[Rfam]
RNA sequence: AACAUACUUGCUUUUAUAGGAAAAAUAAUUAUAAUUUAAGUUUACUGUAAUUUACAAGUUCUUAUAAUUUGUAUUUAGAUAUGAUUUAAAGAGAGUCAAGGGUGAAGUAUAUUUUUACCCUUUAAUCAGUGAUAUA
Numbered sequence: 001a002a003c004a005u006a007c008u009u010g011c012u013u014u015u016a017u018a019g020g021a022a023a024a025a026u027a028a029u030u031a032u033a034a035u036u037u038a039a040g041u042u043u044a045c046u047g048u049a050a051u052u053u054a055c056a057a058g059u060u061c062u063u064a065u066a067a068u069u070u071g072u073a074u075u076u077a078g079a080u081a082u083g084a085u086u087u088a089a090a091g092a093g094a095g096u097c098a099a100g101g102g103u104g105a106a107g108u109a110u111a112u113u114u115u116u117a118c119c120c121u122u123u124a125a126u127c128a129g130u131g132a133u134a135u136a
Base pairs, nucleotide, nucleotide: 004032005031006030008028009027010026012024013023014022015021053073054072055071056070057069058068059067060066096124098122099121100120101119103117104116105115106114107113